[Rfam]
A member of the RNA family "RAGATH-18 RNA", 74 nucleotides long. It is one of the family's seed sequences.
RNA sequence: CCUAUAGAGAGUACAAAAAAAUGUGAGUAGUGUCUGACUUACUCAGCACAAAAACAUACUCGACGAAGUAGGAA
Numbered sequence: 001c002c003u004a005u006a007g008a009g010a011g012u013a014c015a016a017a018a019a020a021a022u023g024u025g026a027g028u029a030g031u032g033u034c035u036g037a038c039u040u041a042c043u044c045a046g047c048a049c050a051a052a053a054a055c056a057u058a059c060u061c062g063a064c065g066a067a068g069u070a071g072g073a074a
Stems, first nucleotide, its partner, number of pairs: 001072005009061005022056003030049003035045002
About the family: Actinobacteria, Firmicutes, Fusobacteria, Thermotogae (1 example).